[Rfam]
RNA sequence: GGGAGCGCAAACCACUCCCCAUCGGCUGUAUUCGGCGCGAGCGCCCAUCCACCCAAGCGCCAAUAUGGCUUGACCCGCCCGGCUGUCCCCCCGGGCGGGUC
Numbered sequence: 001g002g003g004a005g006c007g008c009a010a011a012c013c014a015c016u017c018c019c020c021a022u023c024g025g026c027u028g029u030a031u032u033c034g035g036c037g038c039g040a041g042c043g044c045c046c047a048u049c050c051a052c053c054c055a056a057g058c059g060c061c062a063a064u065a066u067g068g069c070u071u072g073a074c075c076c077g078c079c080c081g082g083c084u085g086u087c088c089c090c091c092c093g094g095g096c097g098g099g100u101c
Base pairs, nucleotide, nucleotide: 001019002018003017004016005015024070025069026068027067028066029065030064031063034061035060036059037058038057072101073100074099075098076097077096078095079094080093081092082091
Rfam assigns this 101-nucleotide RNA sequence from Rhodopseudomonas palustris to the family "Rhizobiales-2 RNA".